Shown here is a 96-nucleotide sequence from Hevea brasiliensis, a member of the family "MIR2950 microRNA precursor family". The family's consensus secondary structure was predicted with RNAalifold.

RNA sequence: CAUGGGUUUGUGGUGUAUUCCAUCUCUUGCACACUGGACCAGUAAAUGAGACCUUCUGGUUGGUGUGCAAGGGAUGGAAUGUAUCAUUGAUCUAUG
Numbered sequence: 001c002a003u004g005g006g007u008u009u010g011u012g013g014u015g016u017a018u019u020c021c022a023u024c025u026c027u028u029g030c031a032c033a034c035u036g037g038a039c040c041a042g043u044a045a046a047u048g049a050g051a052c053c054u055u056c057u058g059g060u061u062g063g064u065g066u067g068c069a070a071g072g073g074a075u076g077g078a079a080u081g082u083a084u085c086a087u088u089g090a091u092c093u094a095u096g
Stems, first nucleotide, its partner, number of pairs: 001096008010087028039058001

NCBI's taxonomy places the organism under Eukaryota, Streptophyta, Embryophyta, rosids, Hevea.